[Rfam]
RNA: Small nucleolar RNA SNORD72
Organism: Salmo trutta
RNA sequence: AUCUUGUCAAUGAUGUUUUCAAAACAAAUGUCUGAACAUAUGAAUUUCAGUGAUUCUUACUUGUUGGCUGAGACAUGAU
Numbered sequence: 001a002u003c004u005u006g007u008c009a010a011u012g013a014u015g016u017u018u019u020c021a022a023a024a025c026a027a028a029u030g031u032c033u034g035a036a037c038a039u040a041u042g043a044a045u046u047u048c049a050g051u052g053a054u055u056c057u058u059a060c061u062u063g064u065u066g067g068c069u070g071a072g073a074c075a076u077g078a079u
Stems, first nucleotide, its partner, number of pairs: 002078002005075004